[Rfam]
RNA: LOOT RNA
RNA sequence: GUCCUAACCCCAUCCGAGAUAUUUUCUCUGGUGGAUAUGGAUGAAAACCCCGAUAAAGAUACUGAACACCACGUUCAGCCACUCUUUAUCGGGUCACAUCGGGAAACUGGUGUGGGGGCCGCAAGGCUUC
Number, nucleotide and partner (000 for none) at each position: 001g042002u041003c040004c039005u000006a000007a000008c000009c000010c034011c033012a032013u031014c030015c000016g000017a000018g000019a000020u000021a000022u000023u000024u000025u000026c000027u000028c000029u000030g014031g013032u012033g011034g010035a000036u000037a000038u000039g004040g003041a002042u001043g000044a000045a000046a000047a000048c000049c093050c092051c091052g090053a089054u088055a087056a086057a085058g084059a083060u000061a000062c078063u077064g076065a075066a074067c073068a000069c000070c000071a000072c000073g067074u066075u065076c064077a063078g062079c000080c000081a000082c000083u059084c058085u057086u056087u055088a054089u053090c052091g051092g050093g049094u000095c114096a113097c112098a111099u110100c109101g108102g107103g000104a000105a000106a000107c102108u101109g100110g099111u098112g097113u096114g095115g130116g129117g128118g127119c126120c125121g000122c000123a000124a000125g120126g119127c118128u117129u116130c115